[Rfam]
RNA: Eukaryotic large subunit ribosomal RNA, nucleotides 2478 to 3077
RNA sequence: UCAGCGGGGAAAGAAGACCCUGUUGAGCUUGACUCUAGUUCGACUUUGUGAAGUGACUUAAGAGGUGUAGCAUAAGUGGGAGCUUCGGCGCAUGUGAAAUACCACUACUUUUAAUGUUGCUUUACUUAUUCCGUUAUGCUAAAACUCGGCUCUGCCGAUUUGUUGCUCAAAGUUCUUUCGAGGACUGAUUCGCGCGGGAGACUUAGUCAGGUGGGGAGUUUGGCUGGGGCGGCACAUCUGUUAAAUGGUAACGCAGGUGUCCUAAGGUGAGCUCAGUGAGAACAGAAAUCUCACGUAGACCAAAAGGGGAAAAGCUCACUUGAUUUUGAUUUUCAGUGUGAAUACAAACUGUGAAAGCAUGGCCUAUCGAUCCUUUAAGUCUGGGAAACGUCCAGCUAGAGGUGUCAGAAAAGUUACCACAGGGAUAACUGGCUUGUGGCAGCCAAGCGUUCAUAGCGACGUUGCUUUUUGAUCCUUCGAUGUCGGCUCUUCCUAUCAUUGAGACGCAGAAGUCCCAAAGUGUCGGAUUGUUCACCCGCCAAUAGGGAACGUGAGCUGGGUUUAGACCGUCGUGAGACAGGUUAGUUUUACCCUACUGAU
Numbered sequence: 001u002c003a004g005c006g007g008g009g010a011a012a013g014a015a016g017a018c019c020c021u022g023u024u025g026a027g028c029u030u031g032a033c034u035c036u037a038g039u040u041c042g043a044c045u046u047u048g049u050g051a052a053g054u055g056a057c058u059u060a061a062g063a064g065g066u067g068u069a070g071c072a073u074a075a076g077u078g079g080g081a082g083c084u085u086c087g088g089c090g091c092a093u094g095u096g097a098a099a100u101a102c103c104a105c106u107a108c109u110u111u112u113a114a115u116g117u118u119g120c121u122u123u124a125c126u127u128a129u130u131c132c133g134u135u136a137u138g139c140u141a142a143a144a145c146u147c148g149g150c151u152c153u154g155c156c157g158a159u160u161u162g163u164u165g166c167u168c169a170a171a172g173u174u175c176u177u178u179c180g181a182g183g184a185c186u187g188a189u190u191c192g193c194g195c196g197g198g199a200g201a202c203u204u205a206g207u208c209a210g211g212u213g214g215g216g217a218g219u220u221u222g223g224c225u226g227g228g229g230c231g232g233c234a235c236a237u238c239u240g241u242u243a244a245a246u247g248g249u250a251a252c253g254c255a256g257g258u259g260u261c262c263u264a265a266g267g268u269g270a271g272c273u274c275a276g277u278g279a280g281a282a283c284a285g286a287a288a289u290c291u292c293a294c295g296u297a298g299a300c301c302a303a304a305a306g307g308g309g310a311a312a313a314g315c316u317c318a319c320u321u322g323a324u325u326u327u328g329a330u331u332u333u334c335a336g337u338g339u340g341a342a343u344a345c346a347a348a349c350u351g352u353g354a355a356a357g358c359a360u361g362g363c364c365u366a367u368c369g370a371u372c373c374u375u376u377a378a379g380u381c382u383g384g385g386a387a388a389c390g391u392c393c394a395g396c397u398a399g400a401g402g403u404g405u406c407a408g409a410a411a412a413g414u415u416a417c418c419a420c421a422g423g424g425a426u427a428a429c430u431g432g433c434u435u436g437u438g439g440c441a442g443c444c445a446a447g448c449g450u451u452c453a454u455a456g457c458g459a460c461g462u463u464g465c466u467u468u469u470u471g472a473u474c475c476u477u478c479g480a481u482g483u484c485g486g487c488u489c490u491u492c493c494u495a496u497c498a499u500u501g502a503g504a505c506g507c508a509g510a511a512g513u514c515c516c517a518a519a520g521u522g523u524c525g526g527a528u529u530g531u532u533c534a535c536c537c538g539c540c541a542a543u544a545g546g547g548a549a550c551g552u553g554a555g556c557u558g559g560g561u562u563u564a565g566a567c568c569g570u571c572g573u574g575a576g577a578c579a580g581g582u583u584a585g586u587u588u589u590a591c592c593c594u595a596c597u598g599a600u
Stems, first nucleotide, its partner, number of pairs: 001599004007594003011589002019423004024419002026415005032219004039211002042208004048125010058114007075106005082089002129199005139192001141190002146158005171186005222235001223233003236258006261362002267319006273299002276294006300309002324348003329343004350359003373401005381395004432473001434471001436470001438466006447457002484559001485557004489551001490548005497522002500517002503514003524538003528534001565583004569578003